[Rfam]
RNA sequence: AAGGUUCCGGUUCACGCCACGAUCCGACGGCGACCCGGCGACC
Numbered sequence: 001a002a003g004g005u006u007c008c009g010g011u012u013c014a015c016g017c018c019a020c021g022a023u024c025c026g027a028c029g030g031c032g033a034c035c036c037g038g039c040g041a042c043c
Base pairs, nucleotide, nucleotide: 003043004042005041007038008037009036010035015032016031017030018029020026021025
A member of the RNA family "L31-Actinobacteria ribosomal protein leader" from Phytohabitans rumicis, 43 nucleotides long. The family's consensus secondary structure is taken from published work. Lineage of the source: Bacteria > Bacillati > Actinomycetota > Micromonosporaceae > Phytohabitans. The family's RNA type in Rfam is cis-regulatory leader. It scores 49 bits against the family's covariance model.